[Rfam]
Rfam assigns this 129-nucleotide RNA sequence from Arsenophonus endosymbiont of Bemisia tabaci to the family "RtT RNA". Lineage of the source: Bacteria > Pseudomonadota > Gammaproteobacteria > Enterobacterales > Arsenophonus endosymbiont of Bemisia tabaci. From the family's description: This family represents a bacterial cis-regulatory element known as RtT RNA. The exact function of RtT is unknown although it is thought that it may be involved in changing the cellular response in relation to amino acid starvation.
RNA sequence: AUAUAGCAUGUGAAGUACAGGAUGAGAAGCUGUGUAGGUUCGAGCCGAGCGAAGCGAGACAGCGUUGUGCUUCGCACAACGACCCGAAGGGCGAGGGCGUAAGGCCGAGUUAUCCUGUACGACCCACCA
Numbered sequence: 001a002u003a004u005a006g007c008a009u010g011u012g013a014a015g016u017a018c019a020g021g022a023u024g025a026g027a028a029g030c031u032g033u034g035u036a037g038g039u040u041c042g043a044g045c046c047g048a049g050c051g052a053a054g055c056g057a058g059a060c061a062g063c064g065u066u067g068u069g070c071u072u073c074g075c076a077c078a079a080c081g082a083c084c085c086g087a088a089g090g091g092c093g094a095g096g097g098c099g100u101a102a103g104g105c106c107g108a109g110u111u112a113u114c115c116u117g118u119a120c121g122a123c124c125c126a127c128c129a
Stems, first nucleotide, its partner, number of pairs: 015120007023112001033093002039088004046056002063081006